RNA: mir-184 microRNA precursor family
Organism: Clupea harengus
RNA sequence: UCGACCACAUCUCCUUAUCACUUUUCCUGCCCAGCUAUCCUUUCUGUAUCCGUUGGACGGAGAACUGAUAAGGGCAUGAGGCUGA
Numbered sequence: 001u002c003g004a005c006c007a008c009a010u011c012u013c014c015u016u017a018u019c020a021c022u023u024u025u026c027c028u029g030c031c032c033a034g035c036u037a038u039c040c041u042u043u044c045u046g047u048a049u050c051c052g053u054u055g056g057a058c059g060g061a062g063a064a065c066u067g068a069u070a071a072g073g074g075c076a077u078g079a080g081g082c083u084g085a
Stems, first nucleotide, its partner, number of pairs: 012074009022064006030056002